[Rfam]
RNA sequence: CGUAGUUCUCGGGGCGGGGUGAAAUUCCCCACCGGCGGUGAUUGGCGGCGUCGAAGAUUCGGCGCCGGCACAGCCCGCGAGCGCCCGCCGUCAGCGGCGGGGACAGCAGAUCCGGUGUGAUUCCGGAGCCGACGGUCAUAGUCCGGAUACGAGAGAACCGGU
Numbered sequence: 001c002g003u004a005g006u007u008c009u010c011g012g013g014g015c016g017g018g019g020u021g022a023a024a025u026u027c028c029c030c031a032c033c034g035g036c037g038g039u040g041a042u043u044g045g046c047g048g049c050g051u052c053g054a055a056g057a058u059u060c061g062g063c064g065c066c067g068g069c070a071c072a073g074c075c076c077g078c079g080a081g082c083g084c085c086c087g088c089c090g091u092c093a094g095c096g097g098c099g100g101g102g103a104c105a106g107c108a109g110a111u112c113c114g115g116u117g118u119g120a121u122u123c124c125g126g127a128g129c130c131g132a133c134g135g136u137c138a139u140a141g142u143c144c145g146g147a148u149a150c151g152a153g154a155g156a157a158c159c160g161g162u
Base pairs, nucleotide, nucleotide: 003160005158006157007156008155009154010153017029018028019027031142032141033131034130035078036077037076038075073129074128081107082106111127112126113125114124115123133145134144135143